A member of the RNA family "Epstein-Barr virus stable intronic sequence RNA 2" from Dryobates pubescens, 76 nucleotides long. Rfam classes the family as a non-coding RNA gene. For this family Rfam cites "RNA families in Epstein-Barr virus" (Moss et al., RNA Biol, 2014). Rfam 15.1 lists 171 matches to the family in 47 species. The match comes from Rfam's covariance-model search (43 bits).

[Rfam]
RNA sequence: UCCCCGGGGAAGCUGCAGUGGCUCCCCGGGGAAGCUGCAGUGGCUCCCCGGGGAAGCUGCAGUGGCUCCCCGGGGA
Numbered sequence: 001u002c003c004c005c006g007g008g009g010a011a012g013c014u015g016c017a018g019u020g021g022c023u024c025c026c027c028g029g030g031g032a033a034g035c036u037g038c039a040g041u042g043g044c045u046c047c048c049c050g051g052g053g054a055a056g057c058u059g060c061a062g063u064g065g066c067u068c069c070c071c072g073g074g075g076a
Base pairs, nucleotide, nucleotide: 001076002075003074004073005072006071007070008069009068012066013065018060019059020058021057022056023055024053025052026051027050028049029048030047031046033045034044035043036042037041
Dot-bracket structure: (((((((((..((....((((((((((((((.(((((...))))))))))))).))))))....)).)))))))))